[Rfam]
RNA sequence: AAUUUUCAUCGGUAAAGCUGCCGAAAGGCAGUGACACAAAGCCAAGGGUCUAAAGUCUUACAUAAGACUAUGACAGCCGGUUGCCACA
Numbered sequence: 001a002a003u004u005u006u007c008a009u010c011g012g013u014a015a016a017g018c019u020g021c022c023g024a025a026a027g028g029c030a031g032u033g034a035c036a037c038a039a040a041g042c043c044a045a046g047g048g049u050c051u052a053a054a055g056u057c058u059u060a061c062a063u064a065a066g067a068c069u070a071u072g073a074c075a076g077c078c079g080g081u082u083g084c085c086a087c088a
Stems, first nucleotide, its partner, number of pairs: 012037002017032006040082004046078002048074003055068004